[Rfam]
RNA: Bacterial large subunit ribosomal RNA, nucleotides 861 to 1306
Organism: Gemmatimonas aurantiaca
RNA sequence: CUCCCCGAAAUCUAUUGAGGUAGAGCCUCGAGGCGUGUUAGCAGGGGGUAGAGCGACUGGAAGGGCGCGGGGGGUCGUAGACCCUACCAACCCCUACCAAACUCCGAAUACCUGACUAAUGGACCUCGGGAGGCAGUCGCUGAGCGAUAAUGUCCAGCGGCGAGAGGGAAAGAACCCAGAACCACAGCUAAGGCCCCGAAGUGGCUGCUGAGUAUAGCGAAGGAUGUCGUCGUGCAGAGACAACUGGGAGGUUGGCUUAGAAGCAGCCAUUCCUUGAAAGAGUGCGUAAUAGCUCACCAGUCCAGCGUGAUGGCGCCGAGAAUGGUCGGGAUUAAGCAGCCCGCCGAAGCUUGGUCUUGCAGCUUUGCUGCAGGGGUAGGGGAGCGUUCCCUGUGCGUUGAAGCGAGCGUGGAAACGAUACUCGUGGAGCGAAGGGAAGUGAGGAU
Numbered sequence: 001c002u003c004c005c006c007g008a009a010a011u012c013u014a015u016u017g018a019g020g021u022a023g024a025g026c027c028u029c030g031a032g033g034c035g036u037g038u039u040a041g042c043a044g045g046g047g048g049u050a051g052a053g054c055g056a057c058u059g060g061a062a063g064g065g066c067g068c069g070g071g072g073g074g075u076c077g078u079a080g081a082c083c084c085u086a087c088c089a090a091c092c093c094c095u096a097c098c099a100a101a102c103u104c105c106g107a108a109u110a111c112c113u114g115a116c117u118a119a120u121g122g123a124c125c126u127c128g129g130g131a132g133g134c135a136g137u138c139g140c141u142g143a144g145c146g147a148u149a150a151u152g153u154c155c156a157g158c159g160g161c162g163a164g165a166g167g168g169a170a171a172g173a174a175c176c177c178a179g180a181a182c183c184a185c186a187g188c189u190a191a192g193g194c195c196c197c198g199a200a201g202u203g204g205c206u207g208c209u210g211a212g213u214a215u216a217g218c219g220a221a222g223g224a225u226g227u228c229g230u231c232g233u234g235c236a237g238a239g240a241c242a243a244c245u246g247g248g249a250g251g252u253u254g255g256c257u258u259a260g261a262a263g264c265a266g267c268c269a270u271u272c273c274u275u276g277a278a279a280g281a282g283u284g285c286g287u288a289a290u291a292g293c294u295c296a297c298c299a300g301u302c303c304a305g306c307g308u309g310a311u312g313g314c315g316c317c318g319a320g321a322a323u324g325g326u327c328g329g330g331a332u333u334a335a336g337c338a339g340c341c342c343g344c345c346g347a348a349g350c351u352u353g354g355u356c357u358u359g360c361a362g363c364u365u366u367g368c369u370g371c372a373g374g375g376g377u378a379g380g381g382g383a384g385c386g387u388u389c390c391c392u393g394u395g396c397g398u399u400g401a402a403g404c405g406a407g408c409g410u411g412g413a414a415a416c417g418a419u420a421c422u423c424g425u426g427g428a429g430c431g432a433a434g435g436g437a438a439g440u441g442a443g444g445a446u
Stems, first nucleotide, its partner, number of pairs: 001384006011024005026132001027130007036123001037120005042114004051105001052103002058099003062095004069088002071085005136161007144153002166177003181355004186351003192345003201342001203341006222317002226314010243301005249274003254268003275279001280295001284293002356374008385441001387438006394431003403425005408417003